[Rfam]
RNA sequence: GAGUUACUCUCAGCGGCGAGGCUAAGCCGGUAGGCGGAGCCGUAGGGAAACCGAGUCUGAACAGGGCGUGUAGUCGCUGGGAGUAGACCCGAAACCGUACGAUCUAUCCAUGGCCAGGUUGAAGUCCGGGUAACACCGGAUGGAGGACCGAACCCACCAGUGCUGAAAAACUGGGGGAUGAGCUGUGGAUAGGAGUGAAAAGCUAAUCGAGUACGGAGAUAGCUGGUU
Numbered sequence: 001g002a003g004u005u006a007c008u009c010u011c012a013g014c015g016g017c018g019a020g021g022c023u024a025a026g027c028c029g030g031u032a033g034g035c036g037g038a039g040c041c042g043u044a045g046g047g048a049a050a051c052c053g054a055g056u057c058u059g060a061a062c063a064g065g066g067c068g069u070g071u072a073g074u075c076g077c078u079g080g081g082a083g084u085a086g087a088c089c090c091g092a093a094a095c096c097g098u099a100c101g102a103u104c105u106a107u108c109c110a111u112g113g114c115c116a117g118g119u120u121g122a123a124g125u126c127c128g129g130g131u132a133a134c135a136c137c138g139g140a141u142g143g144a145g146g147a148c149c150g151a152a153c154c155c156a157c158c159a160g161u162g163c164u165g166a167a168a169a170a171c172u173g174g175g176g177g178a179u180g181a182g183c184u185g186u187g188g189a190u191a192g193g194a195g196u197g198a199a200a201a202g203c204u205a206a207u208c209g210a211g212u213a214c215g216g217a218g219a220u221a222g223c224u225g226g227u228u
Base pairs, nucleotide, nucleotide: 005085006084007083008082009081010080011079012078013077014076015075016074017073020041021040022039023038026035027034028033045052046051055067056066057065058064088226089225091223095216096215097214098213099212100211104192105191106190107189108188109187110186111185112184113183114182115180117149118148119147120146124141125140126139127138128137129136153177154176155175157174158173159172160171161170194204195203196202
Overview:
The record is a 228-nucleotide part of an RNA from Desulfurobacterium indicum, which matches "Bacterial large subunit ribosomal RNA" in Rfam. The source organism's lineage runs through Bacteria, Aquificota, Desulfurobacteriales, Desulfurobacteriaceae and Desulfurobacterium. It scores 2845 bits against the family's covariance model.